[Rfam]
Description
Small nucleolar RNA SNORA17: a 129-nucleotide sequence from Mus spicilegus. Rfam links the family to the GO terms nucleolus and RNA processing. The source organism's lineage runs through Eukaryota, Gnathostomata, Mammalia, Mus and Mus. Pairs were carried over by alignment from the consensus structure, which was predicted with RNAalifold. Rfam describes the family as follows. snoRNA ACA 17 belongs to the H/ACA family of snoRNAs and is predicted to guide pseudouridylation of the 28S rRNA at positions U4659 and U4598. It shares the same host gene together with ACA43. NB This family has a high threshold value to exclude a large number of closely related sequences that do not appear to have conserved H and ACA boxes, and may be pseudogenes.

RNA sequence: CCAGUCCCCAGAGGUAUUGCAGGUGUGGCUGCUGUGUCACGUGUGUGUCAGUAGGUGGCAGAAAGGAGAGAUGCUAUGUCUCUGCUCAAUGUUCUGACCUAUGAACAUCUAUCUAAAUGAUGUUCCUGA
Number, nucleotide and partner (000 for none) at each position: 001c000002c061003a000004g059005u058006c057007c055008c054009c000010a052011g000012a000013g049014g048015u047016a000017u000018u000019g046020c045021a044022g000023g000024u041025g040026u039027g038028g037029c036030u000031g000032c000033u000034g000035u000036g029037u028038c027039a026040c025041g024042u000043g000044u021045g020046u019047g015048u014049c013050a000051g000052u010053a000054g008055g007056u000057g006058g005059c004060a000061g002062a000063a000064a000065g000066g000067a000068g126069a000070g124071a123072u122073g121074c000075u119076a118077u117078g000079u000080c000081u000082c000083u115084g114085c000086u000087c000088a110089a000090u107091g106092u105093u104094c103095u000096g000097a000098c000099c000100u000101a000102u000103g094104a093105a092106c091107a090108u000109c000110u088111a000112u000113c000114u084115a083116a000117a077118u076119g075120a000121u073122g072123u071124u070125c000126c068127u000128g000129a000